[Rfam]
RNA: U4 spliceosomal RNA
RNA sequence: AUCCAAGUGCAAGGGCAUUCACCUACCCUAUGAGGUUGACACUGAGGGAGGCAUUGCUGGAGGGAGUUCUACUCUCGACCAUUGCUCCUCAUCGGGUUCGCCUGGUGAGGGAAUUUUUGAAUCGUGCUUUGUUUCAUUGCGU
Dot-bracket structure: .....................(((.(((.....(((....)))..))))))..................................(((((((((((....)))))))))))...............................